[Rfam]
RNA sequence: UCGACUCGUCGCAACUGGCGUAGCACGAAGAUGGGUCACCAUCGGGGAGCGACUGACACGGUUAGUGGCCGCGCGCCUGGGCCACGACA
Numbered sequence: 001u002c003g004a005c006u007c008g009u010c011g012c013a014a015c016u017g018g019c020g021u022a023g024c025a026c027g028a029a030g031a032u033g034g035g036u037c038a039c040c041a042u043c044g045g046g047g048a049g050c051g052a053c054u055g056a057c058a059c060g061g062u063u064a065g066u067g068g069c070c071g072c073g074c075g076c077c078u079g080g081g082c083c084a085c086g087a088c089a
Base pairs, nucleotide, nucleotide: 006055008053009052010051011050012049015046016045017077018076019075020074021073031042032041033040034039066084067083068082069081070080
A member of the RNA family "ZMP/ZTP riboswitch aptamer (pfl RNA motif)" from Glaciibacter psychrotolerans, 89 nucleotides long.
It scores 55 bits against the family's covariance model.